[Rfam]
Selenocysteine transfer RNA: a 94-nucleotide RNA sequence from Sporobacter termitidis. NCBI's taxonomy places the organism under Bacteria, Bacillati, Clostridia, Oscillospiraceae, Sporobacter termitidis. Its Rfam clan is "tRNA clan". The family's consensus secondary structure is taken from published work.
RNA sequence: GGAGGUAGAUGGGUAGCUGGUGUGCCCCACGGUCUUCAAAACCGAUGUGGGCGGUUAGUAGCCGCCUCGGUGGGUUCGAUUCCCACAUGCCUCC
Numbered sequence: 001g002g003a004g005g006u007a008g009a010u011g012g013g014u015a016g017c018u019g020g021u022g023u024g025c026c027c028c029a030c031g032g033u034c035u036u037c038a039a040a041a042c043c044g045a046u047g048u049g050g051g052c053g054g055u056u057a058g059u060a061g062c063c064g065c066c067u068c069g070g071u072g073g074g075u076u077c078g079a080u081u082c083c084c085a086c087a088u089g090c091c092u093c094c
Stems, first nucleotide, its partner, number of pairs: 001094007008086001011027005017022001030044004049067004071085004